Background:
Photosynthesis regulatory RNA1: an 84-nucleotide sequence from Anabaenopsis elenkinii. Rfam describes the family as follows. Formerly known as Syr1 discovered in Synechocystis sp PCC 6803, is a regulatory factor controlling photosynthetic functions. PsrR1 interacts with the ribosome binding regions of several photosynthesis-related mRNAs. The family has 13 seed sequences and 92 matches in Rfam 15.1. Rfam classes the family as a small RNA. The literature on the family includes a 2014 paper in Plant Cell by Georg et al., "The small regulatory RNA SyR1/PsrR1 controls photosynthetic functions in cyanobacteria". The match comes from Rfam's covariance-model search (62 bits).
RNA sequence: AAGAUUUUUUGAUUUUGGUAUCGGUAUCUCUCAUCGUCAAUUCGAGUUCUCCUUCUCACCCUGGUUAGUUUCACCAGGGUUUUU
Number, nucleotide and partner (000 for none) at each position: 001a000002a000003g000004a000005u000006u000007u000008u000009u000010u000011g000012a000013u000014u000015u000016u000017g000018g000019u000020a000021u000022c000023g000024g000025u000026a000027u000028c000029u000030c000031u000032c000033a000034u000035c000036g000037u000038c000039a000040a000041u000042u000043c000044g000045a000046g000047u000048u000049c000050u000051c000052c000053u000054u000055c000056u000057c000058a080059c079060c078061c077062u076063g075064g074065u073066u000067a000068g000069u000070u000071u000072c000073a065074c064075c063076a062077g061078g060079g059080u058081u000082u000083u000084u000